[Rfam]
RNA sequence: GAAUGAUAUGAUGAACUUCAUACAAGUGAUUGCUUAUAUGAUAUCACUUUAUCAUGUAUUAGCUCUAGCUGAUCAUUC
Numbered sequence: 001g002a003a004u005g006a007u008a009u010g011a012u013g014a015a016c017u018u019c020a021u022a023c024a025a026g027u028g029a030u031u032g033c034u035u036a037u038a039u040g041a042u043a044u045c046a047c048u049u050u051a052u053c054a055u056g057u058a059u060u061a062g063c064u065c066u067a068g069c070u071g072a073u074c075a076u077u078c
Stems, first nucleotide, its partner, number of pairs: 002077004028048001031046002034043001

Shown here is a 78-nucleotide RNA sequence from Nicotiana attenuata, a member of the family "Small nucleolar RNA Z102/R77". For this family Rfam cites "The high diversity of snoRNAs in plants: identification and comparative study of 120 snoRNA genes from Oryza sativa" (Chen et al., Nucleic Acids Res, 2003). Its family is annotated with nucleolus and RNA processing in the Gene Ontology. The organism belongs to Nicotiana, within Eukaryota.